RNA sequence: GCCGCCCUGCCCGUGACGCCGGUGCGGAUCAACAACUCGCCGUCGGAGGCGUUCAGGCUCCAGCUGUCGGUCACAGACCGACUGUAAUCACAUGGUCAGGACG
Numbered sequence: 001g002c003c004g005c006c007c008u009g010c011c012c013g014u015g016a017c018g019c020c021g022g023u024g025c026g027g028a029u030c031a032a033c034a035a036c037u038c039g040c041c042g043u044c045g046g047a048g049g050c051g052u053u054c055a056g057g058c059u060c061c062a063g064c065u066g067u068c069g070g071u072c073a074c075a076g077a078c079c080g081a082c083u084g085u086a087a088u089c090a091c092a093u094g095g096u097c098a099g100g101a102c103g
Base pairs, nucleotide, nucleotide: 004059006057007056008055019046020045021044022043024041025039026038027037064076065075066074067073079094080093083090084089
Shown here is a 103-nucleotide sequence from Mycobacterium heidelbergense, a member of the family "AS1890 sRNA". A reference for the family is Arnvig and Young (2009), "Identification of small RNAs in Mycobacterium tuberculosis", Mol Microbiol. NCBI's taxonomy places the organism under Bacteria, Bacillati, Actinomycetes, Mycobacterium, Mycobacterium simiae complex.